[Rfam]
RNA sequence: AUUAGAGAAAGAGGUUGCGACCAACAAAAGUAGGUUAGCUAAGGAUUGACGGAAUCCGUUGAGGCUAGUUGAAAGGGAAGGUUGCCGAAGGAAUUCAGUACCGUUUACUGGAUUGCUGGGCCGUUGUUCAAGAAAUGACGGACUGUCGCAGCAAAAAAUGUCGGCUGCGGGGUGCUUAUCGACGA
Numbered sequence: 001a002u003u004a005g006a007g008a009a010a011g012a013g014g015u016u017g018c019g020a021c022c023a024a025c026a027a028a029a030g031u032a033g034g035u036u037a038g039c040u041a042a043g044g045a046u047u048g049a050c051g052g053a054a055u056c057c058g059u060u061g062a063g064g065c066u067a068g069u070u071g072a073a074a075g076g077g078a079a080g081g082u083u084g085c086c087g088a089a090g091g092a093a094u095u096c097a098g099u100a101c102c103g104u105u106u107a108c109u110g111g112a113u114u115g116c117u118g119g120g121c122c123g124u125u126g127u128u129c130a131a132g133a134a135a136u137g138a139c140g141g142a143c144u145g146u147c148g149c150a151g152c153a154a155a156a157a158a159u160g161u162c163g164g165c166u167g168c169g170g171g172g173u174g175c176u177u178a179u180c181g182a183c184g185a
Stems, first nucleotide, its partner, number of pairs: 007179001009177003017085006025077001033070008089117002092114009118144002121141008146170007
Shown here is a 185-nucleotide sequence from Periweissella cryptocerci, a member of the family "Lysine riboswitch aptamer". Pairs were carried over by alignment from the consensus structure, which is taken from published work. The organism belongs to Periweissella, within Bacteria. A search with the family's covariance model found it, with a score of 108 bits.